Rfam assigns this 172-nucleotide sequence from Aegilops tauschii to the family "U1 spliceosomal RNA". The base pairs follow the family's consensus structure, which is taken from published work. Taxonomically the source falls in Aegilops tauschii (Eukaryota, Spermatophyta, Pooideae, Aegilops). U1 is a small nuclear RNA (snRNA) component of the spliceosome (involved in pre-mRNA splicing). Its 5' end forms complementary base pairs with the 5' splice junction, thus defining the 5' donor site of an intron. There are significant differences in sequence and secondary structure between metazoan and yeast U1 snRNAs, the latter being much longer (568 nucleotides as compared to 164 nucleotides in human). Nevertheless, secondary structure predictions suggest that all U1 snRNAs share a 'common core' consisting of helices I, II, the proximal region of III, and IV. This family does not contain the larger yeast sequences. The family is grouped with related families in Rfam's "U1 clan". It is annotated as a spliceosomal small nuclear RNA.
[Rfam]
RNA sequence: AUACUUACCUGGACGGGGCUCGACGGCUGAUCAAGAAGAGCUGUGGCCUAGGCUAGUGGUCCACAUUGCACUUGGUGGAUGUGCUGGCUUACCAUCUUCCCAAGUGGGAGAGUGGACGUCAUAAUUUGUCAUAAUUUGUGAUAGAGGGGGUACGCGUUCGUGCGGCCCUGCC
Numbered sequence: 001a002u003a004c005u006u007a008c009c010u011g012g013a014c015g016g017g018g019c020u021c022g023a024c025g026g027c028u029g030a031u032c033a034a035g036a037a038g039a040g041c042u043g044u045g046g047c048c049u050a051g052g053c054u055a056g057u058g059g060u061c062c063a064c065a066u067u068g069c070a071c072u073u074g075g076u077g078g079a080u081g082u083g084c085u086g087g088c089u090u091a092c093c094a095u096c097u098u099c100c101c102a103a104g105u106g107g108g109a110g111a112g113u114g115g116a117c118g119u120c121a122u123a124a125u126u127u128g129u130c131a132u133a134a135u136u137u138g139u140g141a142u143a144g145a146g147g148g149g150g151u152a153c154g155c156g157u158u159c160g161u162g163c164g165g166c167c168c169u170g171c172c
Stems, first nucleotide, its partner, number of pairs: 012120004016049005024043005050089002054086001060079005092115003095111003099107002146171001148169003153164004